Notes:
Rfam assigns this 178-nucleotide RNA sequence from Anabaena cylindrica to the family "Antisense RNA which regulates isiA expression".
[Rfam]
RNA sequence: AGUAGCUAAAAAUUAUUUCUGGAUUCAGAGUAGGGUGAGAAAUAAGGCGCACAUCUUGUAAAUGGGUAUCAUAAAUUCCACCCAAAAACAUGGCUUUUAGCACUAACAAAAAUGCACCUAAACCUAAAAUAAUCAAGUGGUGUCCCAAAAUUAAACCUAAUUGUUUGGGAUCAUUCCA
Dot-bracket structure: .......................................................................................................................................((((((..(((((................)))))))))))...
Notes: For this family Rfam cites "An internal antisense RNA regulates expression of the photosynthesis gene isiA" (Duhring et al., Proc Natl Acad Sci U S A, 2006). It scores 145 bits against the family's covariance model. The family has 308 seed sequences and 3,397 matches in Rfam 15.1. Lineage of the source: Bacteria > Bacillati > Nostocales > Nostocaceae > Anabaena cylindrica.